Shown here is an 86-nucleotide sequence from Niallia circulans, a member of the family "c-di-GMP-I riboswitch aptamer".
Pairs were carried over by alignment from the consensus structure, which is taken from published work.
The organism belongs to Niallia, within Bacteria.
RNA sequence: AAAUGAUAAAGGCAAAUUCAUCGAAAGGUGAAGACGCAAAGCUAUAGGGACUAAGAUCGUGGAGAUUAAGUCAGCCAGUUACCGAU
Numbered sequence: 001a002a003a004u005g006a007u008a009a010a011g012g013c014a015a016a017u018u019c020a021u022c023g024a025a026a027g028g029u030g031a032a033g034a035c036g037c038a039a040a041g042c043u044a045u046a047g048g049g050a051c052u053a054a055g056a057u058c059g060u061g062g063a064g065a066u067u068a069a070g071u072c073a074g075c076c077a078g079u080u081a082c083c084g085a086u
Base pairs, nucleotide, nucleotide: 012037013036017032018031019030020029021028022027040080041079042078043077047076048075049072050071051070056066057065058064